[Rfam]
RNA sequence: ACCGAUUUAUAAGCGCCAGACCUAUUCUUAAGAAUAGGUGACGAGGAAGGGAUUUAUCGAAAGUUCGGCGGGUGAUCCCAGGGUCUGCACUCUACACGUUAAACUAAAAGUGCGUUGGAAACGACCAUGACAAAAUUUUAGCGAUGCAGUGGU
Numbered sequence: 001a002c003c004g005a006u007u008u009a010u011a012a013g014c015g016c017c018a019g020a021c022c023u024a025u026u027c028u029u030a031a032g033a034a035u036a037g038g039u040g041a042c043g044a045g046g047a048a049g050g051g052a053u054u055u056a057u058c059g060a061a062a063g064u065u066c067g068g069c070g071g072g073u074g075a076u077c078c079c080a081g082g083g084u085c086u087g088c089a090c091u092c093u094a095c096a097c098g099u100u101a102a103a104c105u106a107a108a109a110g111u112g113c114g115u116u117g118g119a120a121a122c123g124a125c126c127a128u129g130a131c132a133a134a135a136u137u138u139u140a141g142c143g144a145u146g147c148a149g150u151g152g153u
Base pairs, nucleotide, nucleotide: 020039021038022037023036024035025034026033027032049079050078051077052076053075057068058067059066060065080093081092082091083090084089097143098142099141100140101139102138103137110128111127112126114125115124116123117122
RNA: glmS glucosamine-6-phosphate activated ribozyme aptamer